[Rfam]
RNA sequence: CCUGUUGAGCCAUCUCACCAGCCCAGAAAAUAUUUUUAAAAAGUGAAUUGUCUUAAGCUGGAGAGAUGGCUCAGCAGU
Numbered sequence: 001c002c003u004g005u006u007g008a009g010c011c012a013u014c015u016c017a018c019c020a021g022c023c024c025a026g027a028a029a030a031u032a033u034u035u036u037u038a039a040a041a042a043g044u045g046a047a048u049u050g051u052c053u054u055a056a057g058c059u060g061g062a063g064a065g066a067u068g069g070c071u072c073a074g075c076a077g078u
Stems, first nucleotide, its partner, number of pairs: 002077015018061005
RNA: mir-3473 microRNA precursor family